FMN riboswitch aptamer (RFN element): a 135-nucleotide sequence from [Clostridium] methylpentosum.
[Rfam]
RNA sequence: AGUCUGUUUCAGGGCGGAGUGAAAUUCUCCACUGGCGGUAAUGAGGGGGAUCCCUUUAGUCCGCGAGCCGGAUUUCCGGCACGAUUUGGUGCGAUUCCAAAACCAACGGUAUAGUCCGGAUAAAAGAAACAAAUG
Numbered sequence: 001a002g003u004c005u006g007u008u009u010c011a012g013g014g015c016g017g018a019g020u021g022a023a024a025u026u027c028u029c030c031a032c033u034g035g036c037g038g039u040a041a042u043g044a045g046g047g048g049g050a051u052c053c054c055u056u057u058a059g060u061c062c063g064c065g066a067g068c069c070g071g072a073u074u075u076c077c078g079g080c081a082c083g084a085u086u087u088g089g090u091g092c093g094a095u096u097c098c099a100a101a102a103c104c105a106a107c108g109g110u111a112u113a114g115u116c117c118g119g120a121u122a123a124a125a126g127a128a129a130c131a132a133a134u135g
Stems, first nucleotide, its partner, number of pairs: 003133001005131006017029003031115002033105002035064004059103002067080003085101005107118003
It scores 105 bits against the family's covariance model.